[Rfam]
RNA sequence: UGCUUCCCAACAUGGGACCCAAGAACAGGGGACUUAGUGAGUGAUGCUGUUUGUGGGCCCAAAGUAGAAAAAGGAAAAGAAAAUAGAGGACCAAUGUGGGAGCCUACCAUGCCGCUGAAUCUUGGUAAGUGAACAGUGAUUAUAGGACAAGAAAUUAGCCAGCAUGAGAUUUUAAAAGUUUAAGAAAGGCUUUAAAGGCAUGACGAGUAAAGGUAAAAAAAAAAAAAUUAAGCAAUUGUCGAUUAGGGCUAAACUUAACUC
Numbered sequence: 001u002g003c004u005u006c007c008c009a010a011c012a013u014g015g016g017a018c019c020c021a022a023g024a025a026c027a028g029g030g031g032a033c034u035u036a037g038u039g040a041g042u043g044a045u046g047c048u049g050u051u052u053g054u055g056g057g058c059c060c061a062a063a064g065u066a067g068a069a070a071a072a073g074g075a076a077a078a079g080a081a082a083a084u085a086g087a088g089g090a091c092c093a094a095u096g097u098g099g100g101a102g103c104c105u106a107c108c109a110u111g112c113c114g115c116u117g118a119a120u121c122u123u124g125g126u127a128a129g130u131g132a133a134c135a136g137u138g139a140u141u142a143u144a145g146g147a148c149a150a151g152a153a154a155u156u157a158g159c160c161a162g163c164a165u166g167a168g169a170u171u172u173u174a175a176a177a178g179u180u181u182a183a184g185a186a187a188g189g190c191u192u193u194a195a196a197g198g199c200a201u202g203a204c205g206a207g208u209a210a211a212g213g214u215a216a217a218a219a220a221a222a223a224a225a226a227a228u229u230a231a232g233c234a235a236u237u238g239u240c241g242a243u244u245a246g247g248g249c250u251a252a253a254c255u256u257a258a259c260u261c
Base pairs, nucleotide, nucleotide: 006030007029008028013024035049036048037047038046082126084124085122086121091117092114095111096110097109098108099107130149131148134146137144138143155194157192158190159189160188201241202240203239204238205237206236211229212228214226246261247260248259250257251256
Shown here is a 261-nucleotide RNA sequence from Cavia porcellus, a member of the family "Mason-Pfizer monkey virus packaging signal".
Pairs were carried over by alignment from the consensus structure, which was predicted with PFOLD.
The match comes from Rfam's covariance-model search (59 bits).
The family's RNA type in Rfam is cis-regulatory element.